RNA: RNase MRP
Organism: Calypte anna
RNA sequence: GGAUGUUCUGAAGACCUGCUCGCUAGGCUACGCACGGAGGGCAAUGGUUCCUCAUGGGCCUUGUGCCCGCCUAGGGGAAAGUCCCCGGACCGCAGGCAGAGAGUGCCGGGCGCUGCUGGCGCCCCCGCUCGCCCCUACCCUCACGCAGCCUCCGCCAAGACGCCUCCGGGCCGAGCGGGUGAGCGCGGGGCGGGCUCUCGUCACGGCCACAGAUACGCAGGUAGUGCGCAGGCGCACUAACAGAACGGGGCUCACUCUCAGGCCAUC
Numbered sequence: 001g002g003a004u005g006u007u008c009u010g011a012a013g014a015c016c017u018g019c020u021c022g023c024u025a026g027g028c029u030a031c032g033c034a035c036g037g038a039g040g041g042c043a044a045u046g047g048u049u050c051c052u053c054a055u056g057g058g059c060c061u062u063g064u065g066c067c068c069g070c071c072u073a074g075g076g077g078a079a080a081g082u083c084c085c086c087g088g089a090c091c092g093c094a095g096g097c098a099g100a101g102a103g104u105g106c107c108g109g110g111c112g113c114u115g116c117u118g119g120c121g122c123c124c125c126c127g128c129u130c131g132c133c134c135c136u137a138c139c140c141u142c143a144c145g146c147a148g149c150c151u152c153c154g155c156c157a158a159g160a161c162g163c164c165u166c167c168g169g170g171c172c173g174a175g176c177g178g179g180u181g182a183g184c185g186c187g188g189g190g191c192g193g194g195c196u197c198u199c200g201u202c203a204c205g206g207c208c209a210c211a212g213a214u215a216c217g218c219a220g221g222u223a224g225u226g227c228g229c230a231g232g233c234g235c236a237c238u239a240a241c242a243g244a245a246c247g248g249g250g251c252u253c254a255c256u257c258u259c260a261g262g263c264c265a266u267c
Stems, first nucleotide, its partner, number of pairs: 002267004007262005014222006023074006037053005080252002083250004095107004108124006126194001128192001132190003136187001138185001141183001152178004162171003224237005